tRNA: a 73-nucleotide RNA sequence from Prevotella sp. oral taxon 299. Rfam links the family to the GO term triplet codon-amino acid adaptor activity. The base pairs follow the family's consensus structure, which is taken from published work. Rfam's curators write: Transfer RNA (tRNA) molecules are approximately 80 nucleotides in length. Their secondary structure includes four short double-helical elements and three loops (D, anti-codon, and T loops). Further hydrogen bonds mediate the characteristic L-shaped molecular structure. tRNAs have two regions of fundamental functional importance: the anti-codon, which is responsible for specific mRNA codon recognition, and the 3' end, to which the tRNAs corresponding amino acid is attached (by aminoacyl-tRNA synthetases). tRNAs cope with the degeneracy of the genetic code in two manners: having more than one tRNA (with a specific anti-codon) for a particular amino acid; and 'wobble' base-pairing, i.e. permitting non-standard base-pairing at the 3rd anti-codon position. It is annotated as a transfer RNA.

[Rfam]
RNA sequence: CGGGAUGUAGCGCAGUUGGUAGCGCACUACGUUCGGGACGUAGGAGUCGGGCGUUCGAGUCGCCUCAUCCCGA
Number, nucleotide and partner (000 for none) at each position: 001c072002g071003g070004g069005a068006u067007g066008u000009a000010g025011c024012g023013c022014a000015g000016u000017u000018g000019g000020u000021a000022g013023c012024g011025c010026a000027c043028u042029a041030c040031g039032u000033u000034c000035g000036g000037g000038a000039c031040g030041u029042a028043g027044g000045a000046g000047u000048c000049g065050g064051g063052c062053g061054u000055u000056c000057g000058a000059g000060u000061c053062g052063c051064c050065u049066c007067a006068u005069c004070c003071c002072g001073a000